Shown here is a 136-nucleotide RNA sequence from Serratia sp. DD3, a member of the family "Histidine operon leader". For this family Rfam cites "Attenuation in amino acid biosynthetic operons" (Kolter and Yanofsky, Annu Rev Genet, 1982). Rfam describes the family as follows. At least 6 amino acid operons are known to be regulated by attenuation. In each a leader sequence of 150-200 bp is found upstream of the first gene in the operon. Its family is annotated with histidine biosynthetic process in the Gene Ontology. The organism belongs to Serratia, within Bacteria.
[Rfam]
Nucleotides: 136
Base pairs, nucleotide, nucleotide: 008043009042010041011039012038013037014036017034018033019032020031021030044070045069046068047067048066049065050064051063098133099132100131101130102129103128104127105126106125107124108123109122110121111120112119113118
Number, partner (000 for none) and nucleotide at each position: 001000c002000c003000a004000u005000c006000a007000u008043c009042a010041c011039c012038a013037u014036c015000a016000u017034c018033c019032u020031g021030a022000c023000u024000a025000g026000u027000c028000u029000u030021u031020c032019a033018g034017g035000c036014g037013a038012u039011g040000u041010g042009u043008g044070c045069u046068g047067g048066g049065a050064g051063a052000c053000g054000g055000u056000u057000c058000u059000u060000g061000a062000a063051u064050c065049u066048u067047c068046c069045a070044g071000u072000g073000g074000c075000g076000c077000g078000u079000a080000g081000a082000a083000c084000g085000u086000a087000a088000a089000a090000a091000a092000c093000g094000c095000a096000u097000g098133a099132g100131a101130a102129a103128g104127c105126c106125c107124u108123c109122g110121g111120a112119a113118g114000a115000u116000a117000u118113c119112u120111u121110c122109c123108g124107a125106g126105g127104g128103u129102u130101u131100u132099u133098u134000u135000u136000u